This 58-nucleotide RNA sequence from Thermoanaerobacteraceae bacterium SP2 belongs to the Rfam family "Fluoride riboswitch aptamer (crcB RNA motif)". Taxonomically the source falls in Thermoanaerobacteraceae (Bacteria, Bacillati, Bacillota, Clostridia). The base pairs follow the family's consensus structure, which is taken from published work. For this family Rfam cites "Widespread genetic switches and toxicity resistance proteins for fluoride" (Baker et al., Science, 2012).
RNA sequence: CUUAUAUGAGGUGAUGGAGCUCACCUGAAAUGCCUUGGCUGAUAGCUCCUGCAAUCCA
Numbered sequence: 001c002u003u004a005u006a007u008g009a010g011g012u013g014a015u016g017g018a019g020c021u022c023a024c025c026u027g028a029a030a031u032g033c034c035u036u037g038g039c040u041g042a043u044a045g046c047u048c049c050u051g052c053a054a055u056c057c058a
Stems, first nucleotide, its partner, number of pairs: 010025004016049006032039002